[Rfam]
RNA: FMN riboswitch aptamer (RFN element)
RNA sequence: AUUCACCUUCGGGGCUGGGUGAAAUUCCCGACCGGCGGUAAGGAGUAUACGUACUCUUAAGCCCGCGAGCUUUUCGAAGCAGGAUUUGGUGUGAUUCCAAAGCCGACAGUAUAGUCUGGAUGGGAGAAGGUGAAG
Numbered sequence: 001a002u003u004c005a006c007c008u009u010c011g012g013g014g015c016u017g018g019g020u021g022a023a024a025u026u027c028c029c030g031a032c033c034g035g036c037g038g039u040a041a042g043g044a045g046u047a048u049a050c051g052u053a054c055u056c057u058u059a060a061g062c063c064c065g066c067g068a069g070c071u072u073u074u075c076g077a078a079g080c081a082g083g084a085u086u087u088g089g090u091g092u093g094a095u096u097c098c099a100a101a102g103c104c105g106a107c108a109g110u111a112u113a114g115u116c117u118g119g120a121u122g123g124g125a126g127a128a129g130g131u132g133a134a135g
Stems, first nucleotide, its partner, number of pairs: 003133008017029003031115002033105002035066004061103002071079001085101005107118003